RNA: Pseudomonas sRNA P9
Organism: Geomesophilobacter sediminis
RNA sequence: CUGAUUAUUAUCGCCAUUUCGGAAAGGGCGGGGUAGCAGGCGUUGGUAACGACGCUCAUACAUUAAAAAGACCCGCCCCUGGAGGCGGGUCUU
Numbered sequence: 001c002u003g004a005u006u007a008u009u010a011u012c013g014c015c016a017u018u019u020c021g022g023a024a025a026g027g028g029c030g031g032g033g034u035a036g037c038a039g040g041c042g043u044u045g046g047u048a049a050c051g052a053c054g055c056u057c058a059u060a061c062a063u064u065a066a067a068a069a070g071a072c073c074c075g076c077c078c079c080u081g082g083a084g085g086c087g088g089g090u091c092u093u
Stems, first nucleotide, its partner, number of pairs: 011031005017025001069092009